RAGATH-13 RNA: a 96-nucleotide RNA sequence from Legionella pneumophila. It is one of the family's seed sequences. The family has 20 seed sequences and 49 matches in Rfam 15.1. The source organism's lineage runs through Bacteria, Pseudomonadati, Pseudomonadota, Legionella and Legionella pneumophila. On this family, see Weinberg et al., Nat Chem Biol 2015: "New classes of self-cleaving ribozymes revealed by comparative genomics analysis".
RNA sequence: CUUGAUUUGCCCCAACAUUUCGAGCCUUGCAGCACAAGCUGGAUAUCCUCUUUGAGUGAAUCGCUCGAUUAACACUAAACCAAAGACAGGGCAAAU
Numbered sequence: 001c002u003u004g005a006u007u008u009g010c011c012c013c014a015a016c017a018u019u020u021c022g023a024g025c026c027u028u029g030c031a032g033c034a035c036a037a038g039c040u041g042g043a044u045a046u047c048c049u050c051u052u053u054g055a056g057u058g059a060a061u062c063g064c065u066c067g068a069u070u071a072a073c074a075c076u077a078a079a080c081c082a083a084a085g086a087c088a089g090g091g092c093a094a095a096u
Base pairs, nucleotide, nucleotide: 005096006095007094008093009092010091011090012089020068021067022066023065024064025063030041031040032039033038042062043061044060046059047058